[Rfam]
RNA sequence: AUCUUCAAAGAGCAGAUGAGCAACAGAGGGCCGGUACCAUGUUCAUUGACGAAGUGGUUCUCGCAGGUGUCAUCACCGUAGGUCUGAUGAUCGUCUUCUGCGGCGGGGUUGGAUAUUUCAUCUGGAAGGAUUCGCAUCGGCACUGACCGGUAAUCCUCCCGGAUACACAGAGCACGCAAGGCACUUCGGGCGACUUAAGGUCGCCCGUUUUUUUU
Numbered sequence: 001a002u003c004u005u006c007a008a009a010g011a012g013c014a015g016a017u018g019a020g021c022a023a024c025a026g027a028g029g030g031c032c033g034g035u036a037c038c039a040u041g042u043u044c045a046u047u048g049a050c051g052a053a054g055u056g057g058u059u060c061u062c063g064c065a066g067g068u069g070u071c072a073u074c075a076c077c078g079u080a081g082g083u084c085u086g087a088u089g090a091u092c093g094u095c096u097u098c099u100g101c102g103g104c105g106g107g108g109u110u111g112g113a114u115a116u117u118u119c120a121u122c123u124g125g126a127a128g129g130a131u132u133c134g135c136a137u138c139g140g141c142a143c144u145g146a147c148c149g150g151u152a153a154u155c156c157u158c159c160c161g162g163a164u165a166c167a168c169a170g171a172g173c174a175c176g177c178a179a180g181g182c183a184c185u186u187c188g189g190g191c192g193a194c195u196u197a198a199g200g201u202c203g204c205c206c207g208u209u210u211u212u213u214u215u
Stems, first nucleotide, its partner, number of pairs: 013102001054064003081092004172182002175180001188206007

The family of this 215-nucleotide RNA from Pseudomonas jinjuensis is "PhrS". The match comes from Rfam's covariance-model search (172 bits). Rfam links the family to the GO term quorum sensing. A reference for the family is Livny et al. (2006), "Identification of 17 Pseudomonas aeruginosa sRNAs and prediction of sRNA-encoding genes in 10 diverse pathogens using the bioinformatic tool sRNAPredict2", Nucleic Acids Res.